[Rfam]
RNA sequence: CCAUUAAGCCGUCCGGGGAAUGGCUUGGCUCGGGUGCCGAAGAAGGACGUGCCCAGCGGCGAUACGCCACGGGGAGGCGUAUGGAGCCUGAGAUCCGUGGAUCUCCGAAUGGGACCUCCUGGUCGUUAAGGCGGCCACUCCCUCAUGGGAGGGGGAACCCGGGGAAUUGAAACAUCUUAGUACCCGGAGGAGAAGAAACCAAUAGGGAUUCCGUGAGUACCGGCGAGGGAAAACGGAAUAGAGCAAACCGAAUCCUUUUCCGAAAGGAGAAGGAGAUGUGGAGUUGUGGGACCUGAUCCAAUGCCUCCCAGGCGAACCCGAAGUCCUCUGGAAAGAGGCGCCGUAGAGGGUGAAAGCCCCGUAGGGGUAAGUCUGGUGGCUAUGAGGUCGGGUAUCCCGAGUACCGUGCCUUGGAUAUGGCGCGGGAAUCUGGGUGACAUCAGGCAUCCAACUCUAAAUACACCCCGAGUCCGAUAGCGAACUAGUAGGGUGACCGAAAACUGAAAAGUACCGCGGAAGCGGGGUGAAAAGAGCCUGAAACCGGGCGGCGACAACCU
Dot-bracket structure: .......(((((((((.....((...((((((((((........((((((........))).....((((((...(((.......)))......))))))...)))....(((....))).................(((((....)))))......((((((.....((....))......))))).).........((....))...(((((.....((.....))....)))))..((((....(((.......((((....)))).........)))..........((((.......((............(((...(.((((......)))))..(...).(((.......)))...)))............))........))))...........(((((((........)))))))......(((((........)))))..)))).....)).)))))).))...............((....)).....).................................).....)))))))))........
RNA: Archaeal large subunit ribosomal RNA, nucleotides 10 to 566